Record summary: The family of this 75-nucleotide RNA from Actinotalea fermentans is "c-di-GMP-I riboswitch aptamer". Pairs were carried over by alignment from the consensus structure, which is taken from published work.

RNA sequence: GCGACGACAAGGCAAACCCGCCGCGAGGCGGGGACGCAAAGCCACGGGGCCCUCGAGGUCAGCCGGGCCGCCGAA
Numbered sequence: 001g002c003g004a005c006g007a008c009a010a011g012g013c014a015a016a017c018c019c020g021c022c023g024c025g026a027g028g029c030g031g032g033g034a035c036g037c038a039a040a041g042c043c044a045c046g047g048g049g050c051c052c053u054c055g056a057g058g059u060c061a062g063c064c065g066g067g068c069c070g071c072c073g074a075a
Stems, first nucleotide, its partner, number of pairs: 012037002017032006041068003045065003048060003